Annotation:
A member of the RNA family "Rhodo-rpoB RNA" from Roseovarius sp. 217, 93 nucleotides long. Rfam's curators put it in the seed alignment. Taxonomically the source falls in Roseovarius (Bacteria, Alphaproteobacteria, Rhodobacterales, Roseobacteraceae). It is annotated as a cis-regulatory element.
RNA sequence: CGAUCGGGAGGCCGUCAUUGGGACGAUGGCCAUGAAUGGAUCAAACCCAGCCGUCUCGGAUGGACGCGGUGCUGAGCCCCAACAGCACGCGCG
Numbered sequence: 001c002g003a004u005c006g007g008g009a010g011g012c013c014g015u016c017a018u019u020g021g022g023a024c025g026a027u028g029g030c031c032a033u034g035a036a037u038g039g040a041u042c043a044a045a046c047c048c049a050g051c052c053g054u055c056u057c058g059g060a061u062g063g064a065c066g067c068g069g070u071g072c073u074g075a076g077c078c079c080c081a082a083c084a085g086c087a088c089g090c091g092c093g
Stems, first nucleotide, its partner, number of pairs: 002042004010031007065093004069088006